Small nucleolar RNA SNORD112: a 77-nucleotide RNA sequence from Orycteropus afer. Taxonomically the source falls in Orycteropus afer (Eukaryota, Theria, Afrotheria, Orycteropodidae). It scores 62 bits against the family's covariance model. The family is grouped with related families in Rfam's "SNORD74 clan". Pairs were carried over by alignment from the consensus structure, which was predicted with WAR. Rfam classes the family as a C/D-box small nucleolar RNA.
Nucleotides: 077
Stems, first nucleotide, its partner, number of pairs: 001075001003073004
Number, partner (000 for none) and nucleotide at each position: 001075u002000c003073g004072g005071c006070c007000g008000g009000g010000g011000a012000u013000g014000a015000g016000g017000a018000a019000g020000u021000g022000g023000a024000g025000a026000g027000g028000a029000a030000c031000a032000a033000a034000g035000g036000c037000c038000c039000g040000u041000g042000a043000u044000u045000a046000a047000u048000u049000c050000a051000g052000u053000u054000u055000u056000g057000c058000a059000c060000c061000a062000a063000g064000u065000g066000c067000c068000g069000a070006g071005g072004u073003c074000c075001a076000u077000u